This 146-nucleotide RNA from Miscanthus lutarioriparius belongs to the Rfam family "MIR6234 microRNA precursor family". Its family is annotated with RISC complex and miRNA-mediated post-transcriptional gene silencing in the Gene Ontology.
RNA sequence: CACAUUUCCAUAUGCAAGUGUGUUCCUCUAUUUGACGCUAAAGGAGGAUGCGCCGGUUGAAACACUUCACAAGUGUCGUUGUUACCUUCGGAAGUAUUCUUCCCCUUAGAGUAAAGAGAUGAACACACUUGCCCACCGACAAUACA
Numbered sequence: 001c002a003c004a005u006u007u008c009c010a011u012a013u014g015c016a017a018g019u020g021u022g023u024u025c026c027u028c029u030a031u032u033u034g035a036c037g038c039u040a041a042a043g044g045a046g047g048a049u050g051c052g053c054c055g056g057u058u059g060a061a062a063c064a065c066u067u068c069a070c071a072a073g074u075g076u077c078g079u080u081g082u083u084a085c086c087u088u089c090g091g092a093a094g095u096a097u098u099c100u101u102c103c104c105c106u107u108a109g110a111g112u113a114a115a116g117a118g119a120u121g122a123a124c125a126c127a128c129u130u131g132c133c134c135a136c137c138g139a140c141a142a143u144a145c146a
Stems, first nucleotide, its partner, number of pairs: 004143003009138001014132012027119003031116003035112002038109004043104002046099006054091001056089001059085001061083004065078001068075002